[Rfam]
RNA sequence: AGGACCCAAUUCUCUUGGGUCCGGCUUCAGGACCCAAGGGUAAUCGGUCGUGCGUCAAGACCCAAUUCUCUUGGGUUCGGCAUCCGAACCCAAGGCUAAUGGGUCCU
Numbered sequence: 001a002g003g004a005c006c007c008a009a010u011u012c013u014c015u016u017g018g019g020u021c022c023g024g025c026u027u028c029a030g031g032a033c034c035c036a037a038g039g040g041u042a043a044u045c046g047g048u049c050g051u052g053c054g055u056c057a058a059g060a061c062c063c064a065a066u067u068c069u070c071u072u073g074g075g076u077u078c079g080g081c082a083u084c085c086g087a088a089c090c091c092a093a094g095g096c097u098a099a100u101g102g103g104u105c106c107u
Stems, first nucleotide, its partner, number of pairs: 001107008013095008022086003030078008044064001046062004